A member of the RNA family "Guanidine-I riboswitch aptamer" from Aquabacterium soli, 130 nucleotides long.
[Rfam]
RNA sequence: CGAAAUGGUGGCUAGGGUUCCGGCUUCCAUCGCCAGCAGUACCGGCGGUGAAGUGUCUGGUCCGAGAGCUGCCGGCCCGGGUCGGCCAUCACCGACGCAGGCUCCACGGCGGGACAAAAGCCCGGGAGGU
Numbered sequence: 001c002g003a004a005a006u007g008g009u010g011g012c013u014a015g016g017g018u019u020c021c022g023g024c025u026u027c028c029a030u031c032g033c034c035a036g037c038a039g040u041a042c043c044g045g046c047g048g049u050g051a052a053g054u055g056u057c058u059g060g061u062c063c064g065a066g067a068g069c070u071g072c073c074g075g076c077c078c079g080g081g082u083c084g085g086c087c088a089u090c091a092c093c094g095a096c097g098c099a100g101g102c103u104c105c106a107c108g109g110c111g112g113g114a115c116a117a118a119a120g121c122c123c124g125g126g127a128g129g130u
Base pairs, nucleotide, nucleotide: 007073008072009071010070011069012068015063016062020060021059022057023054024053025052026051027050074103075102076101077100079098081096082095083094084093085092105125107128111123112122113121